[Rfam]
RNA: SAH (S-adenosyl-L-homocysteine) riboswitch aptamer
RNA sequence: CGUGGCGAGGGGCGCUGCGACCGGAUCCGCGGGUUGUGCCGCGAGGCCGCAUCAACCGAUGCGGUGCAUCCGGCCAGGCUCGCCACAUGCUUCCUGACAACCGCGCCCGACGAUU
Numbered sequence: 001c002g003u004g005g006c007g008a009g010g011g012g013c014g015c016u017g018c019g020a021c022c023g024g025a026u027c028c029g030c031g032g033g034u035u036g037u038g039c040c041g042c043g044a045g046g047c048c049g050c051a052u053c054a055a056c057c058g059a060u061g062c063g064g065u066g067c068a069u070c071c072g073g074c075c076a077g078g079c080u081c082g083c084c085a086c087a088u089g090c091u092u093c094c095u096g097a098c099a100a101c102c103g104c105g106c107c108c109g110a111c112g113a114u115u
Stems, first nucleotide, its partner, number of pairs: 002086007021073006